Pyrrolysine insertion sequence mttB: a 100-nucleotide RNA sequence from Tabrizicola oligotrophica. Rfam 15.1 lists 416 matches to the family in 326 species. Taxonomically the source falls in Tabrizicola (Bacteria, Alphaproteobacteria, Rhodobacterales, Paracoccaceae). Rfam links the family to the GO term pyrrolysine incorporation. The match comes from Rfam's covariance-model search (46 bits).
RNA sequence: AUUUCCGAUUCGAAACUGCCCGACAUGCAGGCGGGUUGGGAGCAGGGCAUCACCAAUGCGCUGGCCGGGCUGGCGGGCCUCAACAUGUGCUAUGAGGCGG
Numbered sequence: 001a002u003u004u005c006c007g008a009u010u011c012g013a014a015a016c017u018g019c020c021c022g023a024c025a026u027g028c029a030g031g032c033g034g035g036u037u038g039g040g041a042g043c044a045g046g047g048c049a050u051c052a053c054c055a056a057u058g059c060g061c062u063g064g065c066c067g068g069g070c071u072g073g074c075g076g077g078c079c080u081c082a083a084c085a086u087g088u089g090c091u092a093u094g095a096g097g098c099g100g
Base pairs, nucleotide, nucleotide: 003012033062034061077098079096080095